The record is a 100-nucleotide RNA sequence from Candidatus Accumulibacter regalis, which matches "TPP riboswitch aptamer (THI element)" in Rfam. The match comes from Rfam's covariance-model search (58 bits). Taxonomically the source falls in Candidatus Accumulibacter (Bacteria, Pseudomonadati, Pseudomonadota, Betaproteobacteria).
RNA sequence: CGCUCACGUUGGGGGUGCCGCGCGGAUCACGCUGUGGCUGAGAGAGUCCCUUCGAACCUGUACGGGUCAUGCCGUCGUAGGGAAGCGGAGCGCACGGGGU
Dot-bracket structure: ......((((((((.((((((............)))))......)..)))).....((((.((((......))))..))))..)))).............